[Rfam]
RNA sequence: CUGAACAUCCACGGGUGCUCUCGCGAACCGAGGGCUGAGAUGGCGGCAUGGCGGCCGCCGACCGUACGAACCUGACCGGGUAAUGCCGGCGUAGGGAGAUCUCAUGAGCACCA
Numbered sequence: 001c002u003g004a005a006c007a008u009c010c011a012c013g014g015g016u017g018c019u020c021u022c023g024c025g026a027a028c029c030g031a032g033g034g035c036u037g038a039g040a041u042g043g044c045g046g047c048a049u050g051g052c053g054g055c056c057g058c059c060g061a062c063c064g065u066a067c068g069a070a071c072c073u074g075a076c077c078g079g080g081u082a083a084u085g086c087c088g089g090c091g092u093a094g095g096g097a098g099a100u101c102u103c104a105u106g107a108g109c110a111c112c113a
Stems, first nucleotide, its partner, number of pairs: 005102001007100003011065004017035007042059005071095004076089004